RNA sequence: UAGGGGAGUCGGGACUCGGAGCCCCUCCCCGAGUCUUGGGUAACUGUGUCAGUGGAGGGGAA
Numbered sequence: 001u002a003g004g005g006g007a008g009u010c011g012g013g014a015c016u017c018g019g020a021g022c023c024c025c026u027c028c029c030c031g032a033g034u035c036u037u038g039g040g041u042a043a044c045u046g047u048g049u050c051a052g053u054g055g056a057g058g059g060g061a062a
Stems, first nucleotide, its partner, number of pairs: 008041003012036004016031001018029002022060006
Background:
A member of the RNA family "Gag/pol translational readthrough site" from Tupaia belangeri, 62 nucleotides long. Rfam classes the family as a cis-regulatory element. The organism belongs to Tupaia belangeri, within Eukaryota. A search with the family's covariance model found it, with a score of 69 bits.